This 84-nucleotide RNA from Parambassis ranga belongs to the Rfam family "Small nucleolar RNA SNORD11B". Clan: SNORD11 clan. Pairs were carried over by alignment from the consensus structure, which was predicted with WAR. By type it is a C/D-box small nucleolar RNA. Gene Ontology terms of the family: nucleolus and RNA processing.
[Rfam]
RNA sequence: UGACAGUAGUGAUGAUAACGACAGUCGUCUUUACCCUGAAACAGCCUGUGUGGGUUUUUAGUCACUACCUCAUCUGAACAGUCA
Numbered sequence: 001u002g003a004c005a006g007u008a009g010u011g012a013u014g015a016u017a018a019c020g021a022c023a024g025u026c027g028u029c030u031u032u033a034c035c036c037u038g039a040a041a042c043a044g045c046c047u048g049u050g051u052g053g054g055u056u057u058u059u060a061g062u063c064a065c066u067a068c069c070u071c072a073u074c075u076g077a078a079c080a081g082u083c084a
Stems, first nucleotide, its partner, number of pairs: 002083003006079002